[Rfam]
RNA sequence: AUUAAUAACAAGGGUCGGGCACCCUAUAAAU
Numbered sequence: 001a002u003u004a005a006u007a008a009c010a011a012g013g014g015u016c017g018g019g020c021a022c023c024c025u026a027u028a029a030a031u
Base pairs, nucleotide, nucleotide: 001031002030003029005027006026011025012024013023014022015021
The record is a 31-nucleotide RNA, which matches "S16-Flavobacteria ribosomal protein leader" in Rfam. The family's consensus secondary structure is taken from published work. The sequence is in the family's curated seed alignment. The literature on the family includes a 2020 paper in BMC Microbiol by Eckert and Weinberg, "Discovery of 20 novel ribosomal leader candidates in bacteria and archaea". The family's RNA type in Rfam is cis-regulatory leader.